[Rfam]
RNA sequence: GUGGGCUAUGGCGAUGUGGCGCCCAAGACCUAUCCGGGCAUGUUUGUGGGCGCUCUCUGCGCUCUGGCUGGUGUACUCACCAUCGCACUACCCGUACCUGUUAUCGUUAGCAAU
Numbered sequence: 001g002u003g004g005g006c007u008a009u010g011g012c013g014a015u016g017u018g019g020c021g022c023c024c025a026a027g028a029c030c031u032a033u034c035c036g037g038g039c040a041u042g043u044u045u046g047u048g049g050g051c052g053c054u055c056u057c058u059g060c061g062c063u064c065u066g067g068c069u070g071g072u073g074u075a076c077u078c079a080c081c082a083u084c085g086c087a088c089u090a091c092c093c094g095u096a097c098c099u100g101u102u103a104u105c106g107u108u109a110g111c112a113a114u
Base pairs, nucleotide, nucleotide: 001114002113004111008107009106010105011104013102014101015100016099018097021095022094037077038076040074049063050062051061
A member of the RNA family "Potassium channel RNA editing signal" from Drosophila albomicans, 114 nucleotides long. On this family, see Bhalla et al., Nat Struct Mol Biol 2004: "Control of human potassium channel inactivation by editing of a small mRNA hairpin". A search with the family's covariance model found it, with a score of 88 bits. Rfam classes the family as a cis-regulatory element.